Shown here is a 91-nucleotide RNA sequence from Paenibacillus stellifer, a member of the family "c-di-GMP-I riboswitch aptamer". The family's consensus secondary structure is taken from published work.
[Rfam]
RNA sequence: CAUGUAUAAACGCAAAACAGUCGAAAGGCUGCGACGCAAAGCCCAGGAGUCUACCGCGUGUACACAACGCCAUGAUCGUCCGGCCGCCAUG
Numbered sequence: 001c002a003u004g005u006a007u008a009a010a011c012g013c014a015a016a017a018c019a020g021u022c023g024a025a026a027g028g029c030u031g032c033g034a035c036g037c038a039a040a041g042c043c044c045a046g047g048a049g050u051c052u053a054c055c056g057c058g059u060g061u062a063c064a065c066a067a068c069g070c071c072a073u074g075a076u077c078g079u080c081c082g083g084c085c086g087c088c089a090u091g
Stems, first nucleotide, its partner, number of pairs: 012037002018031005041084003046081003049076003056070004